RNA: ZMP/ZTP riboswitch aptamer (pfl RNA motif)
Nucleotides: 080
Stems, first nucleotide, its partner, number of pairs: 005050008015040002017068005025036004057075005
Number, partner (000 for none) and nucleotide at each position: 001000u002000u003000u004000g005050g006049u007048a008047u009046g010045u011044g012043u013000a014000a015040c016039u017068g018067g019066c020065g021064u022000a023000a024000c025036g026035c027034g028033g029000a030000a031000u032000a033028c034027c035026g036025c037000g038000g039016g040015g041000g042000a043012g044011c045010a046009c047008a048007u049006a050005u051000g052000u053000c054000u055000a056000a057075u058074u059073g060072c061071c062000g063000u064021a065020c066019g067018c068017c069000u070000g071061g072060g073059c074058g075057a076000a077000a078000g079000u080000a